This 71-nucleotide RNA belongs to the Rfam family "DUF3800-IX RNA".
RNA sequence: UCCUUGCAGGUCGAACCGUCACCGUAGGGUGUGCUUGUCUGGCAACCGCCAGACUAGACCGCAAGGGCGCC
Numbered sequence: 001u002c003c004u005u006g007c008a009g010g011u012c013g014a015a016c017c018g019u020c021a022c023c024g025u026a027g028g029g030u031g032u033g034c035u036u037g038u039c040u041g042g043c044a045a046c047c048g049c050c051a052g053a054c055u056a057g058a059c060c061g062c063a064a065g066g067g068c069g070c071c
Base pairs, nucleotide, nucleotide: 001067002066003065004064005063006062007061009060010059011058012057018034019033020031021030022029023028037054038053039052040051041050
Rfam's curators write: Actinobacteria, Firmicutes (1 example), Nitrospirae, Proteobacteria, Verrucomicrobia (1 example). The sequence is in the family's curated seed alignment. Pairs were carried over by alignment from the consensus structure, which is taken from published work.